[Rfam]
RNA sequence: UUCCAUCGCUAAGUCAAGGCCUCUUCCUGCGACUUCGGUCGUGCACAACUUCGGUCGUGCUUGUUUCAAUGGAAUUCCGUCUGUUACAGCUUUGGUAUAUUAACACUGGCCCGCACCGAAUUUCGUUAUGAACCUAGGUUGACUUGCUUUCGUCUUGAAAGCCUGUCGCAAAGGGCCAGCUGUGUUUUGUUUUUGAGUAGAAGUCUGUUUCUGCCUAUUUGGUGGCUUUGUAGCAGACUUCUUAGUAACAUCCCACACAUUC
Number, nucleotide and partner (000 for none) at each position: 001u000002u000003c095004c094005a093006u000007c000008g000009c000010u000011a000012a000013g000014u000015c000016a000017a082018g081019g080020c079021c000022u000023c000024u074025u073026c072027c071028u000029g058030c057031g056032a055033c054034u000035u000036c000037g000038g000039u000040c000041g000042u000043g000044c000045a000046c000047a000048a000049c000050u000051u000052c000053g000054g033055u032056c031057g030058u029059g000060c000061u000062u000063g000064u000065u000066u000067c000068a000069a000070u000071g027072g026073a025074a024075u000076u000077c000078c000079g020080u019081c018082u017083g000084u000085u000086a000087c000088a000089g000090c000091u000092u000093u005094g004095g003096u000097a000098u000099a000100u000101u000102a000103a000104c000105a000106c179107u178108g177109g176110c175111c174112c000113g000114c000115a139116c138117c137118g000119a000120a000121u000122u132123u131124c130125g000126u000127u000128a000129u000130g124131a123132a122133c000134c000135u000136a000137g117138g116139u115140u000141g167142a166143c000144u000145u000146g162147c161148u160149u159150u158151c157152g156153u000154c000155u000156u152157g151158a150159a149160a148161g147162c146163c000164u000165g000166u142167c141168g000169c000170a000171a000172a000173g000174g111175g110176c109177c108178a107179g106180c000181u000182g256183u255184g254185u000186u000187u000188u250189g249190u248191u000192u000193u000194u000195g000196a000197g000198u000199a242200g241201a240202a239203g238204u000205c000206u235207g234208u233209u232210u000211c225212u224213g000214c222215c221216u000217a000218u000219u000220u000221g215222g214223u000224g212225g211226c000227u000228u000229u000230g000231u000232a209233g208234c207235a206236g000237a000238c203239u202240u201241c200242u199243u000244a000245g000246u000247a000248a190249c189250a188251u000252c000253c000254c184255a183256c182257a000258c000259a000260u000261u000262c000
About this RNA
Rfam assigns this 262-nucleotide RNA sequence from Penicillium nalgiovense to the family "Small nucleolar RNA snR191". Pairs were carried over by alignment from the consensus structure, which was predicted with WAR. Taxonomically the source falls in Penicillium (Eukaryota, Dikarya, Pezizomycotina, Aspergillaceae). A reference for the family is Badis et al. (2003), "A snoRNA that guides the two most conserved pseudouridine modifications within rRNA confers a growth advantage in yeast", RNA. The family's RNA type in Rfam is H/ACA-box small nucleolar RNA.